[Rfam]
RNA sequence: UGUUGCCUGUUUUUCUGUUGCCUGAAACUCAUGUUUAGAUUCUAGGUCAUCACAGAUUAAUGGCAACUUAUUCUGAUCAGAGAAUGAUGGGAUAAUGGGCCUAUCCUCAUGUUCCUUGAAAUUUGCAGGUUCAUACCCUU
Numbered sequence: 001u002g003u004u005g006c007c008u009g010u011u012u013u014u015c016u017g018u019u020g021c022c023u024g025a026a027a028c029u030c031a032u033g034u035u036u037a038g039a040u041u042c043u044a045g046g047u048c049a050u051c052a053c054a055g056a057u058u059a060a061u062g063g064c065a066a067c068u069u070a071u072u073c074u075g076a077u078c079a080g081a082g083a084a085u086g087a088u089g090g091g092a093u094a095a096u097g098g099g100c101c102u103a104u105c106c107u108c109a110u111g112u113u114c115c116u117u118g119a120a121a122u123u124u125g126c127a128g129g130u131u132c133a134u135a136c137c138c139u140u
Stems, first nucleotide, its partner, number of pairs: 001052002004049002007046002014039004020034002065131005077119004082114005090106005
Small nucleolar RNA SNORA79: a 140-nucleotide RNA sequence from Gopherus agassizii. The source organism's lineage runs through Eukaryota, Eumetazoa, Testudinata, Testudines and Gopherus. Rfam describes the family as follows. ACA65 (SNORA79) is a member of the H/ACA class of snoRNAs that guide the sites of modification of uridines to pseudouridines. This snoRNA was identified by computational screening and its expression in mouse experimentally verified by Northern blot and primer extension analysis.